[Rfam]
RNA: Ascomycota telomerase RNA, nucleotides 1004 to 1169
RNA sequence: CACAACGUCUUACAUCUUUGAUGCUAGACAUCCCUACCUCCCCGUAUCAUCCUCCUCAUAGAUGGAAACGACUGAGACGAUAGCGGCUUUUGUUGAUGUAUUUUGUCCGUCUUUGCCCUGCUUGGCUUCUAGGCUACGCAGAGGAAACAUAAAACUAAUCUCAAAG
Numbered sequence: 001c002a003c004a005a006c007g008u009c010u011u012a013c014a015u016c017u018u019u020g021a022u023g024c025u026a027g028a029c030a031u032c033c034c035u036a037c038c039u040c041c042c043c044g045u046a047u048c049a050u051c052c053u054c055c056u057c058a059u060a061g062a063u064g065g066a067a068a069c070g071a072c073u074g075a076g077a078c079g080a081u082a083g084c085g086g087c088u089u090u091u092g093u094u095g096a097u098g099u100a101u102u103u104u105g106u107c108c109g110u111c112u113u114u115g116c117c118c119u120g121c122u123u124g125g126c127u128u129c130u131a132g133g134c135u136a137c138g139c140a141g142a143g144g145a146a147a148c149a150u151a152a153a154a155c156u157a158a159u160c161u162c163a164a165a166g
Base pairs, nucleotide, nucleotide: 007029008028009027010026014022015021016020037079038076039075040074044069045068047066048064049063050062051061095160096159097158098155099154101153102152103151104149105148106147116144117143118141119140120139121138124135125134126133